[Rfam]
RNA sequence: UGGUCGGGAGGUCCGCCGUCGUGGACCGUUGGAAUCUUUAUUCCACCCGGCCG
Dot-bracket structure: ((((((((.(((((((....)))))))..(((((......)))))))))))))
Numbered sequence: 001u002g003g004u005c006g007g008g009a010g011g012u013c014c015g016c017c018g019u020c021g022u023g024g025a026c027c028g029u030u031g032g033a034a035u036c037u038u039u040a041u042u043c044c045a046c047c048c049g050g051c052c053g
Stems, first nucleotide, its partner, number of pairs: 001053008010027007030045005

Description
Shown here is a 53-nucleotide RNA from Rhodopseudomonas palustris, a member of the family "DUF3800-VI RNA". The family's RNA type in Rfam is cis-regulatory element.